[Rfam]
RNA: MIR2655 microRNA precursor family
RNA sequence: CCCUUAUCUUUUAAAAGUUUCAAGUUGGUCCCUUAUCUUUAUUUUAGGUUUCAAGUUGGUCCAUUCUGUCAAUUUUUUAACAAUUUCUGUUAAAUUUGGACACGUGGCAAACUAAUUUGGACACGUGGCACCCUUGGACAGUUGACACGUGUCCAAAUUUAACGGUAAUAGUACAAAAUUUGACGGAAGGGACCAACUUGAAACCUAAAAAAAAGAUAAGGGACCAACUUGAAACUUUUAAAAGAUAAGAGA
Numbered sequence: 001c002c003c004u005u006a007u008c009u010u011u012u013a014a015a016a017g018u019u020u021c022a023a024g025u026u027g028g029u030c031c032c033u034u035a036u037c038u039u040u041a042u043u044u045u046a047g048g049u050u051u052c053a054a055g056u057u058g059g060u061c062c063a064u065u066c067u068g069u070c071a072a073u074u075u076u077u078u079a080a081c082a083a084u085u086u087c088u089g090u091u092a093a094a095u096u097u098g099g100a101c102a103c104g105u106g107g108c109a110a111a112c113u114a115a116u117u118u119g120g121a122c123a124c125g126u127g128g129c130a131c132c133c134u135u136g137g138a139c140a141g142u143u144g145a146c147a148c149g150u151g152u153c154c155a156a157a158u159u160u161a162a163c164g165g166u167a168a169u170a171g172u173a174c175a176a177a178a179u180u181u182g183a184c185g186g187a188a189g190g191g192a193c194c195a196a197c198u199u200g201a202a203a204c205c206u207a208a209a210a211a212a213a214a215g216a217u218a219a220g221g222g223a224c225c226a227a228c229u230u231g232a233a234a235c236u237u238u239u240a241a242a243a244g245a246u247a248a249g250a251g252a
Stems, first nucleotide, its partner, number of pairs: 003249006023229003027225003031221010042210002045207005